[Rfam]
RNA sequence: GAGCGGGAACGCGACUGGCGGCACGGGGAUGGCUGUAACCAUCGGGGAGCUCGCCGCGGGGGUCGACCGCCUGGGCCUCCGUG
Numbered sequence: 001g002a003g004c005g006g007g008a009a010c011g012c013g014a015c016u017g018g019c020g021g022c023a024c025g026g027g028g029a030u031g032g033c034u035g036u037a038a039c040c041a042u043c044g045g046g047g048a049g050c051u052c053g054c055c056g057c058g059g060g061g062g063u064c065g066a067c068c069g070c071c072u073g074g075g076c077c078u079c080c081g082u083g
Stems, first nucleotide, its partner, number of pairs: 003057004009051001011050002015046002017071005029042004060078005
Source information: Rfam assigns this 83-nucleotide sequence from Micromonospora narathiwatensis to the family "ZMP/ZTP riboswitch aptamer (pfl RNA motif)". Taxonomically the source falls in Micromonospora (Bacteria, Bacillati, Actinomycetes, Micromonosporaceae). A search with the family's covariance model found it, with a score of 42 bits.